[Rfam]
RNA sequence: GGAAGUUAAUAAACUGUUUCUUAACUUUUAACUAAAAAAAACUAAGAACCAGUUCUUAAAGUCUUUAUUUAAAAACCGAUUCUUAGUUUUUUUAGUUAAAAAUUAAGAAACUGUUUUUUAAAUUCC
Numbered sequence: 001g002g003a004a005g006u007u008a009a010u011a012a013a014c015u016g017u018u019u020c021u022u023a024a025c026u027u028u029u030a031a032c033u034a035a036a037a038a039a040a041a042c043u044a045a046g047a048a049c050c051a052g053u054u055c056u057u058a059a060a061g062u063c064u065u066u067a068u069u070u071a072a073a074a075a076c077c078g079a080u081u082c083u084u085a086g087u088u089u090u091u092u093u094a095g096u097u098a099a100a101a102a103u104u105a106a107g108a109a110a111c112u113g114u115u116u117u118u119u120a121a122a123u124u125c126c
Stems, first nucleotide, its partner, number of pairs: 001126004006121004011116004016111009026101014042086007
Overview
A member of the RNA family "MIR9563 microRNA precursor family" from Brassica oleracea, 126 nucleotides long. The family has 2 seed sequences and 5,832 matches in Rfam 15.1. The organism belongs to Brassica oleracea, within Eukaryota. The base pairs follow the family's consensus structure, which was predicted with RNAalifold. It scores 94 bits against the family's covariance model.